[Rfam]
RNA sequence: CCGACAUACACGAGGGACGUGCGACGGAGUCCCUGCAGUGUCGGUAAGCAUCUCAACAGAGACCUCCAUCGCACCGCUUGACAUUGAAAAAUGUCCCGCGGCCCUAUCACGGGAGAGAACGCUGAGCGUAACAAC
Numbered sequence: 001c002c003g004a005c006a007u008a009c010a011c012g013a014g015g016g017a018c019g020u021g022c023g024a025c026g027g028a029g030u031c032c033c034u035g036c037a038g039u040g041u042c043g044g045u046a047a048g049c050a051u052c053u054c055a056a057c058a059g060a061g062a063c064c065u066c067c068a069u070c071g072c073a074c075c076g077c078u079u080g081a082c083a084u085u086g087a088a089a090a091a092u093g094u095c096c097c098g099c100g101g102c103c104c105u106a107u108c109a110c111g112g113g114a115g116a117g118a119a120c121g122c123u124g125a126g127c128g129u130a131a132c133a134a135c
Stems, first nucleotide, its partner, number of pairs: 001044006007037001009035002074101004080095006
Rfam assigns this 135-nucleotide RNA sequence from Corynebacterium urogenitale to the family "atpB RNA". NCBI's taxonomy places the organism under Bacteria, Bacillati, Mycobacteriales, Corynebacteriaceae, Corynebacterium. It scores 88 bits against the family's covariance model.